[Rfam]
RNA sequence: ACUCCCUGGUGGGACUCUGUCUGUGACUUGUGUAGUCUUGAAUGGUCACAUCACAGGCAGAGUUCUAGUUAGGUGG
Numbered sequence: 001a002c003u004c005c006c007u008g009g010u011g012g013g014a015c016u017c018u019g020u021c022u023g024u025g026a027c028u029u030g031u032g033u034a035g036u037c038u039u040g041a042a043u044g045g046u047c048a049c050a051u052c053a054c055a056g057g058c059a060g061a062g063u064u065c066u067a068g069u070u071a072g073g074u075g076g
Stems, first nucleotide, its partner, number of pairs: 004073002010067008021056006030049003
Dot-bracket structure: ...((....((((((((...((((((...(((..............))).))))))...))))))))....))...